[Rfam]
RNA sequence: UCUUUAUACCGAUGAGGUGAGAGACAGGCUCUGUGACCCUCAGGCAACCAGCUUUCCAUGAAAGUAAGGUGCCAAUUCCUGAACCGACGAAUUUUCGUCAGGUGAAUAUAAAGA
Numbered sequence: 001u002c003u004u005u006a007u008a009c010c011g012a013u014g015a016g017g018u019g020a021g022a023g024a025c026a027g028g029c030u031c032u033g034u035g036a037c038c039c040u041c042a043g044g045c046a047a048c049c050a051g052c053u054u055u056c057c058a059u060g061a062a063a064g065u066a067a068g069g070u071g072c073c074a075a076u077u078c079c080u081g082a083a084c085c086g087a088c089g090a091a092u093u094u095u096c097g098u099c100a101g102g103u104g105a106a107u108a109u110a111a112a113g114a
Base pairs, nucleotide, nucleotide: 001114002113003112004111005110006109007108008107013042014041015040016039017038021031022030023029025081026080027079028078043073044072045071046070048069049068051065052064053063054062077106082103084101086099087098088097089096